The record is a 118-nucleotide RNA from Vitreoscilla sp. C1, which matches "Ribosomal S15 leader" in Rfam.
It is annotated as a cis-regulatory leader.
A search with the family's covariance model found it, with a score of 53 bits.
Its family is annotated with regulation of translation, ncRNA-mediated in the Gene Ontology.
Lineage of the source: Bacteria > Pseudomonadati > Pseudomonadota > Neisseriaceae > Vitreoscilla.
On this family, see Benard et al., Biochimie 1996: "Pseudoknot and translational control in the expression of the S15 ribosomal protein".
RNA sequence: GGUUUCGGCUCUGUUGUCUUGCCGGGCUUGUAGCCCUGAUAUUUAAAUGGAGUAAUACCAAAUGGCUUUGACCGUUGAACAAAAAGCGCAAAUCGUUAAAGAUUUCCAACGCCAAGAA
Numbered sequence: 001g002g003u004u005u006c007g008g009c010u011c012u013g014u015u016g017u018c019u020u021g022c023c024g025g026g027c028u029u030g031u032a033g034c035c036c037u038g039a040u041a042u043u044u045a046a047a048u049g050g051a052g053u054a055a056u057a058c059c060a061a062a063u064g065g066c067u068u069u070g071a072c073c074g075u076u077g078a079a080c081a082a083a084a085a086g087c088g089c090a091a092a093u094c095g096u097u098a099a100a101g102a103u104u105u106c107c108a109a110c111g112c113c114a115a116g117a118a
Stems, first nucleotide, its partner, number of pairs: 007028005048070005
Dot-bracket structure: ......(((((............)))))...................(((((.............)))))................................................